[Rfam]
The record is a 102-nucleotide RNA from Legionella antarctica, which matches "traJ-II RNA" in Rfam. By type it is a cis-regulatory element.

Nucleotides: 102
Base pairs, nucleotide, nucleotide: 001093003091004090005089006088007087009085012051013050014049015048016047017046019044021042024039025038026037027036028035029034056081063075064074065073066072067071
Number, partner (000 for none) and nucleotide at each position: 001093g002000g003091g004090c005089a006088a007087g008000a009085u010000a011000g012051g013050u014049g015048a016047a017046g018000u019044u020000a021042g022000c023000u024039a025038a026037c027036c028035a029034g030000c031000a032000a033000g034029c035028u036027g037026g038025u039024u040000a041000c042021c043000a044019a045000a046017u047016u048015u049014c050013a051012c052000a053000a054000g055000c056081c057000u058000u059000a060000u061000u062000c063075g064074c065073a066072c067071c068000u069000u070000c071067g072066g073065u074064g075063c076000u077000c078000a079000a080000c081056g082000a083000a084000a085009a086000g087007c088006u089005u090004g091003c092000g093001c094000u095000u096000u097000g098000a099000a100000g101000u102000c